[Rfam]
The record is a 69-nucleotide RNA sequence from Drosophila kikkawai, which matches "mir-2 microRNA precursor family" in Rfam. Rfam links the family to the GO terms miRNA-mediated post-transcriptional gene silencing and RISC complex. The organism belongs to Sophophora, within Eukaryota. The family's consensus secondary structure was predicted with PFOLD.
Nucleotides: 069
Stems, first nucleotide, its partner, number of pairs: 006062017
Number, partner (000 for none) and nucleotide at each position: 001000a002000a003000a004000c005000u006062c007061g008060u009059c010058a011057a012056a013055a014054u015053g016052g017051c018050u019049g020048u021047g022046a023000u024000a025000u026000g027000a028000a029000g030000u031000c032000a033000a034000a035000u036000u037000c038000a039000a040000c041000a042000u043000a044000g045000c046022u047021c048020a049019c050018a051017g052016u053015c054014a055013u056012u057011u058010u059009g060008a061007c062006g063000c064000g065000u066000u067000g068000a069000u